[Rfam]
RNA sequence: UAAGACAUCGAGAACCCCUUGAAUCAAGUAAUGUAGUGAUUCAAAUGGUUCUCACAAA
Dot-bracket structure: .........(((((((..((((((((..........))))))))..))))))).....
The family of this 58-nucleotide RNA is "Plastid-ccsA-ndhD-1 3UTR RNA". About the family: Plastid-ccsA-ndhD-1 is a non-coding RNA (ncRNA) recognised in plastids. It was found in the three prime untranslated region (3UTR) of ccsA and ndhD genes, its 3UTR location suggests a role in transcript maturation. It is one of the family's seed sequences.